[Rfam]
RNA sequence: UAAGUUUGCUAGGGGUGCCUUAGGGCUGAGAAGAAGAAAUUCUAACUCUUAAAACCUGAUACAAUUAAUAUUGUCGUAGGGAAGCAAGGAAUGAAUAAG
Numbered sequence: 001u002a003a004g005u006u007u008g009c010u011a012g013g014g015g016u017g018c019c020u021u022a023g024g025g026c027u028g029a030g031a032a033g034a035a036g037a038a039a040u041u042c043u044a045a046c047u048c049u050u051a052a053a054a055c056c057u058g059a060u061a062c063a064a065u066u067a068a069u070a071u072u073g074u075c076g077u078a079g080g081g082a083a084g085c086a087a088g089g090a091a092u093g094a095a096u097a098a099g
Stems, first nucleotide, its partner, number of pairs: 006087005011049004017026003033042003055080004061074004
About this RNA:
A member of the RNA family "TPP riboswitch aptamer (THI element)" from Anaeromicrobium sediminis, 99 nucleotides long. The match comes from Rfam's covariance-model search (72 bits).